[Rfam]
RNA: Bacterial RNase P class A
RNA sequence: GAGGUAGGCCGGAGAGUCGCUUCCCUUUUGGGGAGAGGAAAGUCCGGGCUCCACAGGGCAGGGAGCUGGCGUUGAGCCAGGCAGGGGAAACUCUGCGGAGAGGGCCACAGAAAACAGACCGCCCCUUAAAGGGGUAAGGGUGAAAAGGUGGUGUAAGAGACCACCGCCUCUUUCCGCGAGGAGAGAGGGCAUGGUAACCCCCUCCCGGAGCAAGGCUAAAUAGGUCGGCGCUUGAGGGUUGCCCGCCCGAUGCCGACGGGUAAGCCGCUUAGAUAAAUGGCUCUCUAAAACAGAACCCGGCUUACGGGCCUGCCUACUCC
Numbered sequence: 001g002a003g004g005u006a007g008g009c010c011g012g013a014g015a016g017u018c019g020c021u022u023c024c025c026u027u028u029u030g031g032g033g034a035g036a037g038g039a040a041a042g043u044c045c046g047g048g049c050u051c052c053a054c055a056g057g058g059c060a061g062g063g064a065g066c067u068g069g070c071g072u073u074g075a076g077c078c079a080g081g082c083a084g085g086g087g088a089a090a091c092u093c094u095g096c097g098g099a100g101a102g103g104g105c106c107a108c109a110g111a112a113a114a115c116a117g118a119c120c121g122c123c124c125c126u127u128a129a130a131g132g133g134g135u136a137a138g139g140g141u142g143a144a145a146a147g148g149u150g151g152u153g154u155a156a157g158a159g160a161c162c163a164c165c166g167c168c169u170c171u172u173u174c175c176g177c178g179a180g181g182a183g184a185g186a187g188g189g190c191a192u193g194g195u196a197a198c199c200c201c202c203u204c205c206c207g208g209a210g211c212a213a214g215g216c217u218a219a220a221u222a223g224g225u226c227g228g229c230g231c232u233u234g235a236g237g238g239u240u241g242c243c244c245g246c247c248c249g250a251u252g253c254c255g256a257c258g259g260g261u262a263a264g265c266c267g268c269u270u271a272g273a274u275a276a277a278u279g280g281c282u283c284u285c286u287a288a289a290a291c292a293g294a295a296c297c298c299g300g301c302u303u304a305c306g307g308g309c310c311u312g313c314c315u316a317c318u319c320c
Stems, first nucleotide, its partner, number of pairs: 002315009011305001012285007020035006040303003044300005049210004056244004061206005066080005081096001083094004097201002102199002104195003119139002121135006147165006166190001167188005173182003214266004224257006236248004